A member of the RNA family "PrrF RNA" from Pseudomonas sp. StFLB209, 146 nucleotides long. From the family's description: PrrF RNA is a small RNA involved in iron homeostasis and is found exclusively in Pseudomonas species. Taxonomically the source falls in Pseudomonas (Bacteria, Gammaproteobacteria, Pseudomonadales, Pseudomonadaceae). The family has 18 seed sequences and 107 matches in Rfam 15.1.
[Rfam]
RNA sequence: UUGACCUAAAAAUGAUAAUGAUUAUUAUUUCAUCAGCUGGUCGCGAGACCGGCGGAUAACCCAGGAGUCUUAGGUCGACUCCAGGAUUAUCUCCUCAUCAGGCUAAUCACGGUUUUUGACCCGGCUUUUUGCCGGGUCUUUUUUUU
Number, nucleotide and partner (000 for none) at each position: 001u000002u000003g000004a000005c000006c000007u000008a000009a000010a000011a000012a000013u000014g000015a000016u000017a000018a000019u000020g000021a000022u000023u000024a000025u000026u000027a000028u000029u000030u000031c000032a000033u000034c055035a000036g053037c052038u051039g050040g049041u048042c047043g000044c000045g000046a000047g042048a041049c040050c039051g038052g037053c036054g000055g034056a000057u000058a000059a000060c000061c085062c084063a000064g082065g081066a080067g079068u000069c077070u000071u000072a000073g000074g000075u000076c000077g069078a000079c067080u066081c065082c064083a000084g062085g061086a000087u000088u000089a000090u000091c000092u000093c102094c101095u100096c000097a000098u000099c000100a095101g094102g093103c000104u000105a000106a000107u000108c000109a000110c000111g000112g000113u000114u000115u000116u000117u000118g138119a137120c136121c135122c134123g133124g132125c131126u000127u000128u000129u000130u000131g125132c124133c123134g122135g121136g120137u119138c118139u000140u000141u000142u000143u000144u000145u000146u000